[Rfam]
RNA sequence: AGUUGUCUUCGGGGCGGAGUGAAAUUCUCCACCGGUGGUAAAAGUCCACGAACAAGCAAUUUGCUUGCCGAGUCUGUGAAAUUCAGACACCGACGGUAUAGUCCGGAUGAAAGAAGAAACGC
Numbered sequence: 001a002g003u004u005g006u007c008u009u010c011g012g013g014g015c016g017g018a019g020u021g022a023a024a025u026u027c028u029c030c031a032c033c034g035g036u037g038g039u040a041a042a043a044g045u046c047c048a049c050g051a052a053c054a055a056g057c058a059a060u061u062u063g064c065u066u067g068c069c070g071a072g073u074c075u076g077u078g079a080a081a082u083u084c085a086g087a088c089a090c091c092g093a094c095g096g097u098a099u100a101g102u103c104c105g106g107a108u109g110a111a112a113g114a115a116g117a118a119a120c121g122c
Stems, first nucleotide, its partner, number of pairs: 004119001006117005017029003031102002033092002035049004044090002053067002072088005094105003